Overview:
The family of this 263-nucleotide part of an RNA from Candidatus Aciduliprofundum boonei is "Archaeal large subunit ribosomal RNA". Its Rfam clan is "LSU clan". The organism belongs to Candidatus Aciduliprofundum boonei, within Archaea. Rfam's curators put it in the seed alignment. Rfam links the family to the GO terms structural constituent of ribosome and ribosome.

RNA sequence: GAGUUCCGUCCGUCGGCGAGGCUAAGCGCGAAGGCGCGUAACCGAAGCGAAAGCAACAUGCCCGCAGCCCCGCAAUGGGGUCAGGGGCGGGGUGCGCUCGCCCGGAGUCGGCGGAGGGAGACCCGAAGCCGGUCGAUCUAGGCCUGGGUAGGUUGAAGCCUCUCGAAAGGGAGGUGGAGGACCGAACCGGUGCUGACGUGCAAAUCGCUCGGUUGACCUGGGUCUAGGGGUGAAAGGCCAAUCUAGGCCGGCAUUAGCGGGUU
Numbered sequence: 001g002a003g004u005u006c007c008g009u010c011c012g013u014c015g016g017c018g019a020g021g022c023u024a025a026g027c028g029c030g031a032a033g034g035c036g037c038g039u040a041a042c043c044g045a046a047g048c049g050a051a052a053g054c055a056a057c058a059u060g061c062c063c064g065c066a067g068c069c070c071c072g073c074a075a076u077g078g079g080g081u082c083a084g085g086g087g088c089g090g091g092g093u094g095c096g097c098u099c100g101c102c103c104g105g106a107g108u109c110g111g112c113g114g115a116g117g118g119a120g121a122c123c124c125g126a127a128g129c130c131g132g133u134c135g136a137u138c139u140a141g142g143c144c145u146g147g148g149u150a151g152g153u154u155g156a157a158g159c160c161u162c163u164c165g166a167a168a169g170g171g172a173g174g175u176g177g178a179g180g181a182c183c184g185a186a187c188c189g190g191u192g193c194u195g196a197c198g199u200g201c202a203a204a205u206c207g208c209u210c211g212g213u214u215g216a217c218c219u220g221g222g223u224c225u226a227g228g229g230g231u232g233a234a235a236g237g238c239c240a241a242u243c244u245a246g247g248c249c250g251g252c253a254u255u256a257g258c259g260g261g262u263u
Stems, first nucleotide, its partner, number of pairs: 005119003009115009020043002023040001026037004047054002060088004067081004091102004122261002125258001129251006138227011149215001151183004158175007187212004192208002195206002229239003